[Rfam]
RNA sequence: UCGUGUUAAGGAUAGACGUGGCAUCCUUUUUUGAGGCACGAAAAAAAGAUAGAACAGAUAGCCUGACUUUUG
Numbered sequence: 001u002c003g004u005g006u007u008a009a010g011g012a013u014a015g016a017c018g019u020g021g022c023a024u025c026c027u028u029u030u031u032u033g034a035g036g037c038a039c040g041a042a043a044a045a046a047a048g049a050u051a052g053a054a055c056a057g058a059u060a061g062c063c064u065g066a067c068u069u070u071u072g
Stems, first nucleotide, its partner, number of pairs: 009064003013060002018055002023050003029045004
Shown here is a 72-nucleotide RNA sequence from Flaviramulus basaltis, a member of the family "Flavo-1 RNA". The organism belongs to Flaviramulus, within Bacteria. Rfam classes the family as a small RNA.